[Rfam]
RNA sequence: GGGUCGUUAGCUCAGCUGGUAGAGCAGCGGACUUUUAAUCCGUUGGUCGCGUGUUCGAUCCACGCACGGCCUA
Numbered sequence: 001g002g003g004u005c006g007u008u009a010g011c012u013c014a015g016c017u018g019g020u021a022g023a024g025c026a027g028c029g030g031a032c033u034u035u036u037a038a039u040c041c042g043u044u045g046g047u048c049g050c051g052u053g054u055u056c057g058a059u060c061c062a063c064g065c066a067c068g069g070c071c072u073a
Stems, first nucleotide, its partner, number of pairs: 001072007010025004027043005049065005
This 73-nucleotide RNA from Parazoarcus communis belongs to the Rfam family "tRNA". The family's RNA type in Rfam is transfer RNA. The organism belongs to Parazoarcus, within Bacteria. It scores 67 bits against the family's covariance model. Clan: tRNA clan.